[Rfam]
RNA sequence: CAAUUAGUUUCCUAGGGUUCCGUUGCCGUUGGCAGGUCUGGUCCGAGGGGAAACACGCGGAUAGUCUUAUCCGUGUCUACACGGAGGGACAAAAGCCCGGGAGGA
Numbered sequence: 001c002a003a004u005u006a007g008u009u010u011c012c013u014a015g016g017g018u019u020c021c022g023u024u025g026c027c028g029u030u031g032g033c034a035g036g037u038c039u040g041g042u043c044c045g046a047g048g049g050g051a052a053a054c055a056c057g058c059g060g061a062u063a064g065u066c067u068u069a070u071c072c073g074u075g076u077c078u079a080c081a082c083g084g085a086g087g088g089a090c091a092a093a094a095g096c097c098c099g100g101g102a103g104g105a
Base pairs, nucleotide, nucleotide: 007054008053009052010051011050012049015044016043020041021040022038023035024034025033026032027031055076056075057074058073059072060071061070062069080100082103086098087097088096

This 105-nucleotide RNA from Paenibacillus donghaensis belongs to the Rfam family "Guanidine-I riboswitch aptamer". A search with the family's covariance model found it, with a score of 85 bits. Rfam links the family to the GO term regulation of gene expression. Pairs were carried over by alignment from the consensus structure.